[Rfam]
RNA: msiK RNA
Organism: Nocardia camponoti
RNA sequence: ACGCGACCCCCUGUUCUCGGAUCGUCCGGCACGUUCCUGCCGGGAUGGGAUGAAAGA
Numbered sequence: 001a002c003g004c005g006a007c008c009c010c011c012u013g014u015u016c017u018c019g020g021a022u023c024g025u026c027c028g029g030c031a032c033g034u035u036c037c038u039g040c041c042g043g044g045a046u047g048g049g050a051u052g053a054a055a056g057a
Base pairs, nucleotide, nucleotide: 009049010048011047013046014045015044026043027042028041029040030039031038
Dot-bracket structure: ........(((.(((..........((((((......))))))))))))........